[Rfam]
RNA sequence: AUGAAUAAAGAUUUACGAAAUCAUUAGGUAAUGGAGUGGUCCAUCCCCAAUUCAAUCAAAAUAUUGUUUUCUCUCUCUCCAUAAACAAAUAGUAUUUUUGAUAUGACUGCUUGUUAUUAAAAUGAUUGUUUCAGUUGUCUUUGUUUGGAUAUCAUAUUUGCUGAUGCUCAAGUCAGCGGAGAUAAAGCUCGGUUUACCGGGCUUUAU
Numbered sequence: 001a002u003g004a005a006u007a008a009a010g011a012u013u014u015a016c017g018a019a020a021u022c023a024u025u026a027g028g029u030a031a032u033g034g035a036g037u038g039g040u041c042c043a044u045c046c047c048c049a050a051u052u053c054a055a056u057c058a059a060a061a062u063a064u065u066g067u068u069u070u071c072u073c074u075c076u077c078u079c080c081a082u083a084a085a086c087a088a089a090u091a092g093u094a095u096u097u098u099u100g101a102u103a104u105g106a107c108u109g110c111u112u113g114u115u116a117u118u119a120a121a122a123u124g125a126u127u128g129u130u131u132c133a134g135u136u137g138u139c140u141u142u143g144u145u146u147g148g149a150u151a152u153c154a155u156a157u158u159u160g161c162u163g164a165u166g167c168u169c170a171a172g173u174c175a176g177c178g179g180a181g182a183u184a185a186a187g188c189u190c191g192g193u194u195u196a197c198c199g200g201g202c203u204u205u206a207u
Stems, first nucleotide, its partner, number of pairs: 002147011015131001017129001019127006027118006034112008055102007062094008160177006184205009
A member of the RNA family "FasX small RNA" from Streptococcus equi, 207 nucleotides long. Pairs were carried over by alignment from the consensus structure. The literature on the family includes a 2010 paper in Mol Microbiol by Ramirez-Pena et al., "The group A Streptococcus small regulatory RNA FasX enhances streptokinase activity by increasing the stability of the ska mRNA transcript".